This 84-nucleotide RNA sequence from Athene cunicularia belongs to the Rfam family "mir-130 microRNA precursor family". On this family, see Lagos-Quintana et al., Curr Biol 2002: "Identification of tissue-specific microRNAs from mouse". Gene Ontology terms of the family: RISC complex and miRNA-mediated post-transcriptional gene silencing.
RNA sequence: GUCUGUCCAGCGCCCUUUUUAUGUUGUACUACUAGUGAUCGUGCACAAAAAGCAGUGCAAUGUUAAAAGGGCAUUGGCCAGCAA
Numbered sequence: 001g002u003c004u005g006u007c008c009a010g011c012g013c014c015c016u017u018u019u020u021a022u023g024u025u026g027u028a029c030u031a032c033u034a035g036u037g038a039u040c041g042u043g044c045a046c047a048a049a050a051a052g053c054a055g056u057g058c059a060a061u062g063u064u065a066a067a068a069g070g071g072c073a074u075u076g077g078c079c080a081g082c083a084a
Stems, first nucleotide, its partner, number of pairs: 002083001005079001007077004012072008022062009